The record is a 144-nucleotide sequence from Amborella trichopoda, which matches "small nucleolar RNA snoR134" in Rfam. The base pairs follow the family's consensus structure, which was predicted with RNAalifold. The match comes from Rfam's covariance-model search (64 bits). On this family, see Chen and Wu, Nucleic Acids Res 2009: "Mining small RNA sequencing data: a new approach to identify small nucleolar RNAs in Arabidopsis". Rfam classes the family as an H/ACA-box small nucleolar RNA.

RNA sequence: UUGCACGAGGCAAACCCCGAUCUUCUCCUAGAUGUUUUCAUGAAGAUGCAAGCCUCAAUGCCCGUGCAAUAUAAAUCACCUGUUGAGUGUUGCAGGUUGGUCGAUCUGUCAGUCUAUGCUUGUGUCAAAGCAACAGCAACAUCU
Dot-bracket structure: ..(((((..((.......(..((.(((.................)).)..))..)....)).)))))............((((((..((.((((((..((.............))...)))))).))...))))))........